RNA sequence: AAUUGGCAGGGGUGAUGAAUCAAUUAGAUGUGCUAAGGAACACUUUUUCUAAUGAGCUGAACUUUUGAGGCAUAUUAAUAUUCUGACCUGCCAAAU
Numbered sequence: 001a002a003u004u005g006g007c008a009g010g011g012g013u014g015a016u017g018a019a020u021c022a023a024u025u026a027g028a029u030g031u032g033c034u035a036a037g038g039a040a041c042a043c044u045u046u047u048u049c050u051a052a053u054g055a056g057c058u059g060a061a062c063u064u065u066u067g068a069g070g071c072a073u074a075u076u077a078a079u080a081u082u083c084u085g086a087c088c089u090g091c092c093a094a095a096u
Stems, first nucleotide, its partner, number of pairs: 001096001003094008